This 46-nucleotide RNA from Actinomyces urogenitalis belongs to the Rfam family "L31-Actinobacteria ribosomal protein leader".
NCBI's taxonomy places the organism under Bacteria, Actinomycetes, Actinomycetales, Actinomyces, Actinomyces urogenitalis.
The literature on the family includes a 2020 paper in BMC Microbiol by Eckert and Weinberg, "Discovery of 20 novel ribosomal leader candidates in bacteria and archaea".
It scores 39 bits against the family's covariance model.
It is annotated as a cis-regulatory leader.
The family's consensus secondary structure is taken from published work.
RNA sequence: CUGGUUUCCGGUUCACCUGCGUGGUCCGCGCGCGGGACCCGGGGCC
Numbered sequence: 001c002u003g004g005u006u007u008c009c010g011g012u013u014c015a016c017c018u019g020c021g022u023g024g025u026c027c028g029c030g031c032g033c034g035g036g037a038c039c040c041g042g043g044g045c046c
Base pairs, nucleotide, nucleotide: 003046004045006044008042009041010040011039016036017035018034019033020032021031022030023029